RNA sequence: UUUAAUUAAGGCGAUGGAGCUCGCCGGGGCAUUGCCCAAACCGCACAAUGUGCUAAUAGCUCCUGCCAUGUA
Numbered sequence: 001u002u003u004a005a006u007u008a009a010g011g012c013g014a015u016g017g018a019g020c021u022c023g024c025c026g027g028g029g030c031a032u033u034g035c036c037c038a039a040a041c042c043g044c045a046c047a048a049u050g051u052g053c054u055a056a057u058a059g060c061u062c063c064u065g066c067c068a069u070g071u072a
Base pairs, nucleotide, nucleotide: 010025011024012023013022016063017062018061019060020059021058043053044052045051
Annotation: Fluoride riboswitch aptamer (crcB RNA motif): a 72-nucleotide RNA sequence from Dethiobacter alkaliphilus. NCBI's taxonomy places the organism under Bacteria, Bacillati, Dethiobacteria, Dethiobacter, Dethiobacter alkaliphilus. Pairs were carried over by alignment from the consensus structure, which is taken from published work. Gene Ontology terms of the family: response to fluoride and positive regulation of gene expression.